The family of this 161-nucleotide sequence from Jeotgalibaca porci is "glmS glucosamine-6-phosphate activated ribozyme aptamer". Rfam describes the family as follows. This entry contains a glucosamine-6-phosphate activated ribozyme that is found in the mRNA for GlmS. GlmS is an enzyme that uses fructose-6-phosphate and glutamine to generate glucosamine-6-phosphate. The ribozyme catalyses self cleavage of the glmS mRNA that is thought to regulate GlmS activity. A reference for the family is Winkler et al. (2004), "Control of gene expression by a natural metabolite-responsive ribozyme", Nature. The family's consensus secondary structure is taken from published work.
[Rfam]
RNA sequence: CGGAAAAGGAUAGCGCCAGGCCCAUCUGAUGUCAGAUUAGAUGUGGUGACGAGGAUUGAGUUUAUCGAAAGAUUCGGCGGAUGACUCAAGGUUUGUGUAAUCUACAGAAUGGUUUAAAAAGGAACUGUAAAGUUUCAACAGAAAGCCAUUCCCGCACCCGG
Number, nucleotide and partner (000 for none) at each position: 001c000002g000003g000004a000005a000006a000007a000008g000009g000010a000011u000012a000013g000014c000015g000016c000017c000018a000019g000020g047021c046022c045023c043024a042025u041026c040027u000028g038029a000030u000031g000032u000033c000034a000035g000036a000037u000038u028039a000040g026041a025042u024043g023044u000045g022046g021047u020048g000049a000050c000051g000052a000053g000054g000055a000056u000057u088058g087059a086060g085061u084062u000063u000064a000065u077066c076067g075068a074069a000070a000071g000072a000073u000074u068075c067076g066077g065078c000079g000080g000081a000082u000083g000084a061085c060086u059087c058088a057089a103090g102091g101092u100093u099094u000095g000096u000097g000098u000099a093100a092101u091102c090103u089104a000105c000106a000107g151108a150109a149110u148111g147112g146113u145114u000115u000116a000117a000118a000119a000120a000121g136122g135123a134124a133125c132126u131127g000128u000129a000130a000131a126132g125133u124134u123135u122136c121137a000138a000139c000140a000141g000142a000143a000144a000145g113146c112147c111148a110149u109150u108151c107152c000153c000154g000155c000156a000157c000158c000159c000160g000161g000